[Rfam]
Rfam assigns this 84-nucleotide sequence from Thalassobacter sp. 16PALIMAR09 to the family "Singlet oxygen resistance RNA X".
SorX (RSs2461)like SorY is a singlet oxygen induced sRNA that counteracts oxidative stress by targeting mRNA for a transporter in Rhodobacter. It also has an impact on resistance against organic hydroperoxides. It targets SD sequence of potA mRNA via an aSD sequence.
The family has 8 seed sequences and 528 matches in Rfam 15.1.
By type it is a small RNA.
The pairing is the family consensus, mapped onto this sequence.
Gene Ontology term of the family: response to photooxidative stress.
The match comes from Rfam's covariance-model search (58 bits).
RNA sequence: AACUCUCGAAGGCGCUGAUGAGCUUCGGCUCGCGUCUUCACCUCCCUGUUGGACUUCGGCCGAGCCUUGUGCUCGGCCUUUUUU
Numbered sequence: 001a002a003c004u005c006u007c008g009a010a011g012g013c014g015c016u017g018a019u020g021a022g023c024u025u026c027g028g029c030u031c032g033c034g035u036c037u038u039c040a041c042c043u044c045c046c047u048g049u050u051g052g053a054c055u056u057c058g059g060c061c062g063a064g065c066c067u068u069g070u071g072c073u074c075g076g077c078c079u080u081u082u083u084u
Stems, first nucleotide, its partner, number of pairs: 008039007058078008
Dot-bracket structure: .......(((((((..................)))))))..................((((((((.....))))))))......